A member of the RNA family "ZMP/ZTP riboswitch aptamer (pfl RNA motif)" from Anaerocolumna jejuensis, 77 nucleotides long. The family's consensus secondary structure is taken from published work. Taxonomically the source falls in Anaerocolumna jejuensis (Bacteria, Bacillota, Lachnospirales, Lachnospiraceae).
RNA sequence: AAAGGGUCAUAUGACUGACGGAUGUGGAUAACCACAAGGGAGUAUGACAGAAAGAGCCGACCGUCUGGGCAAGUAGU
Numbered sequence: 001a002a003a004g005g006g007u008c009a010u011a012u013g014a015c016u017g018a019c020g021g022a023u024g025u026g027g028a029u030a031a032c033c034a035c036a037a038g039g040g041a042g043u044a045u046g047a048c049a050g051a052a053a054g055a056g057c058c059g060a061c062c063g064u065c066u067g068g069g070c071a072a073g074u075a076g077u
Base pairs, nucleotide, nucleotide: 006048007047008046009045010044011043012042015039016038017065018064019063020062021061024035025034026033027032056070057069058068